[Rfam]
RNA sequence: GGUAGUAGCAGCAAAGUAAGGUGAGAAUCCUUACCGCCGAAAGGGCUAGGGUUCCUGGGCAAUGUUCGUCAGCCCAGGGUUAGUCGGUCCUAAGGCCAGCCGUAACCCGGCCUGGCCGAAAGGGAAACAGGUUAAUAUUCCUGUACGGCCCAGGUACGCGGCGACGCAAAGGCUGGCUCCUGACGCCUCGGGGUAGGCCAGGUGGGGCUGUCGCCCCAUUUAAAGGCUGAAGCCUGGGGAGUCCCGUAAUGGGGAGAACCAGGUGAAGGCCUGAACAGCCGUCCCUUAAGGGACGGUCUGGCCGAUCCCCGGGGCCCUUGAAAAGGGAGCCAGCUAUGGAUCCUGGGCCACCGUACCGAGAACCGACACAGGUGCCCCUAGCUGAGAAGGCUAAGGCGUGU
Numbered sequence: 001g002g003u004a005g006u007a008g009c010a011g012c013a014a015a016g017u018a019a020g021g022u023g024a025g026a027a028u029c030c031u032u033a034c035c036g037c038c039g040a041a042a043g044g045g046c047u048a049g050g051g052u053u054c055c056u057g058g059g060c061a062a063u064g065u066u067c068g069u070c071a072g073c074c075c076a077g078g079g080u081u082a083g084u085c086g087g088u089c090c091u092a093a094g095g096c097c098a099g100c101c102g103u104a105a106c107c108c109g110g111c112c113u114g115g116c117c118g119a120a121a122g123g124g125a126a127a128c129a130g131g132u133u134a135a136u137a138u139u140c141c142u143g144u145a146c147g148g149c150c151c152a153g154g155u156a157c158g159c160g161g162c163g164a165c166g167c168a169a170a171g172g173c174u175g176g177c178u179c180c181u182g183a184c185g186c187c188u189c190g191g192g193g194u195a196g197g198c199c200a201g202g203u204g205g206g207g208c209u210g211u212c213g214c215c216c217c218a219u220u221u222a223a224a225g226g227c228u229g230a231a232g233c234c235u236g237g238g239g240a241g242u243c244c245c246g247u248a249a250u251g252g253g254g255a256g257a258a259c260c261a262g263g264u265g266a267a268g269g270c271c272u273g274a275a276c277a278g279c280c281g282u283c284c285c286u287u288a289a290g291g292g293a294c295g296g297u298c299u300g301g302c303c304g305a306u307c308c309c310c311g312g313g314g315c316c317c318u319u320g321a322a323a324a325g326g327g328a329g330c331c332a333g334c335u336a337u338g339g340a341u342c343c344u345g346g347g348c349c350a351c352c353g354u355a356c357c358g359a360g361a362a363c364c365g366a367c368a369c370a371g372g373u374g375c376c377c378c379u380a381g382c383u384g385a386g387a388a389g390g391c392u393a394a395g396g397c398g399u400g401u
Base pairs, nucleotide, nucleotide: 016034017033018032019031020030021029035398036397037396038395043377044376045375046374049357050356054078055077056076057075058074059073063071064070085353086352087351089123090122094117095116096115097114098113099112100110101109102108127144128143129142130141131140147349148348149347150346151345152344153343154342179327180326181325185315186314187313188312189311190310191309192308193307196303197302198301199300200299201220202219203218204217205216206215224272225271226270227269233263234262235261236260237259243253244252245251284291363372364371379393380392381391382390
Archaeal large subunit ribosomal RNA: a 401-nucleotide part of an RNA from Methanothermus fervidus. The family has 91 seed sequences and 2,955 matches in Rfam 15.1.